[Rfam]
RNA sequence: CUGACCAGCACGCAUGGGUCGACGUUUAAACAAACGAGCCCGUUCCACCUGUUCUCAUCAUGGAGCAGAUGGAUGCGUUAUUGUCAG
Numbered sequence: 001c002u003g004a005c006c007a008g009c010a011c012g013c014a015u016g017g018g019u020c021g022a023c024g025u026u027u028a029a030a031c032a033a034a035c036g037a038g039c040c041c042g043u044u045c046c047a048c049c050u051g052u053u054c055u056c057a058u059c060a061u062g063g064a065g066c067a068g069a070u071g072g073a074u075g076c077g078u079u080a081u082u083g084u085c086a087g
Base pairs, nucleotide, nucleotide: 001087002086003085004084005083010078011077012076013075015042016041017040018039023036024035025034026033027032044073045072046071047070049068050067051066052065053064054063
RNA: L4-Archaeoglobi ribosomal protein leades